A member of the RNA family "Mammalian CPEB3 ribozyme" from Chiloscyllium punctatum, 78 nucleotides long. Rfam links the family to the GO term RNA nuclease activity. The organism belongs to Chiloscyllium, within Eukaryota.
RNA sequence: ACAUGGAUACAAGUGGUCAAAGAAGGAAUUUUUACAUUAUAGUCUCAGGCAGGCUUUGCUUAGCCUGUGCACUCUUCU
Numbered sequence: 001a002c003a004u005g006g007a008u009a010c011a012a013g014u015g016g017u018c019a020a021a022g023a024a025g026g027a028a029u030u031u032u033u034a035c036a037u038u039a040u041a042g043u044c045u046c047a048g049g050c051a052g053g054c055u056u057u058g059c060u061u062a063g064c065c066u067g068u069g070c071a072c073u074c075u076u077c078u
Base pairs, nucleotide, nucleotide: 013046015044016043017042021078022077023076024075025074026073028040029039050067051066052065053064054063055062